[Rfam]
RNA sequence: AUUACACGGGUAAGUCCUGUACGGCCAGCUCCCUUUGAAUCCCCCAGGGUGGGAACGCAGCAAGGGUAUUAGGUUGUAGCGGCGCGAUGCAGAUCGCUUACCCACCC
Numbered sequence: 001a002u003u004a005c006a007c008g009g010g011u012a013a014g015u016c017c018u019g020u021a022c023g024g025c026c027a028g029c030u031c032c033c034u035u036u037g038a039a040u041c042c043c044c045c046a047g048g049g050u051g052g053g054a055a056c057g058c059a060g061c062a063a064g065g066g067u068a069u070u071a072g073g074u075u076g077u078a079g080c081g082g083c084g085c086g087a088u089g090c091a092g093a094u095c096g097c098u099u100a101c102c103c104a105c106c107c
Stems, first nucleotide, its partner, number of pairs: 008103008017092005022086002024083002